[Rfam]
RNA sequence: GGUAACAAGAACUGGAAAGGAACUGCAGAACCAAAGAAAGGAAAUGUUACACAGGAAGAGACCUGAAGGGUGAAAGUUCAAGAGAGCUUAGCAUGCAAAAAAGCAAACUUGACCACCGAGAGUAAAAGAGAUCUUACUCAAGGAUGCAAGAGGUAAUCUCACUUUUGACACCCACAGAUCUCGAUUUAAAAGAAA
Numbered sequence: 001g002g003u004a005a006c007a008a009g010a011a012c013u014g015g016a017a018a019g020g021a022a023c024u025g026c027a028g029a030a031c032c033a034a035a036g037a038a039a040g041g042a043a044a045u046g047u048u049a050c051a052c053a054g055g056a057a058g059a060g061a062c063c064u065g066a067a068g069g070g071u072g073a074a075a076g077u078u079c080a081a082g083a084g085a086g087c088u089u090a091g092c093a094u095g096c097a098a099a100a101a102a103g104c105a106a107a108c109u110u111g112a113c114c115a116c117c118g119a120g121a122g123u124a125a126a127a128g129a130g131a132u133c134u135u136a137c138u139c140a141a142g143g144a145u146g147c148a149a150g151a152g153g154u155a156a157u158c159u160c161a162c163u164u165u166u167g168a169c170a171c172c173c174a175c176a177g178a179u180c181u182c183g184a185u186u187u188a189a190a191a192g193a194a195a
Stems, first nucleotide, its partner, number of pairs: 002050003012040002064176002068173002078112005086104004120139005128160005147167006
RNA: IMES-1 RNA motif